This 138-nucleotide RNA from Carlito syrichta belongs to the Rfam family "Small Cajal body specific RNA 11".
[Rfam]
RNA sequence: UUGUCCUGGCCUGUGCUUUUGUGCUCCCCUGUGCUCAGUUCAGCAGGGUGGUCUGGCAGGACACACAGCACUCUCCCUCUCAGUUUAGGAGGGCCAUCCUAAGAGUAGGGCUGGCUCUUAAAGGCACGAGAGGACAGU
Numbered sequence: 001u002u003g004u005c006c007u008g009g010c011c012u013g014u015g016c017u018u019u020u021g022u023g024c025u026c027c028c029c030u031g032u033g034c035u036c037a038g039u040u041c042a043g044c045a046g047g048g049u050g051g052u053c054u055g056g057c058a059g060g061a062c063a064c065a066c067a068g069c070a071c072u073c074u075c076c077c078u079c080u081c082a083g084u085u086u087a088g089g090a091g092g093g094c095c096a097u098c099c100u101a102a103g104a105g106u107a108g109g110g111c112u113g114g115c116u117c118u119u120a121a122a123g124g125c126a127c128g129a130g131a132g133g134a135c136a137g138u
Base pairs, nucleotide, nucleotide: 002063003062004061005060006059007058008057010056011055023052024051025050027048028047029046030045031044032043076133077132078131079130080129081128083125084124085123086122089119090118091117092116093115094114095113097110098109099108100107101106
It is annotated as a small Cajal body RNA. NCBI's taxonomy places the organism under Eukaryota, Bilateria, Euarchontoglires, Primates, Carlito.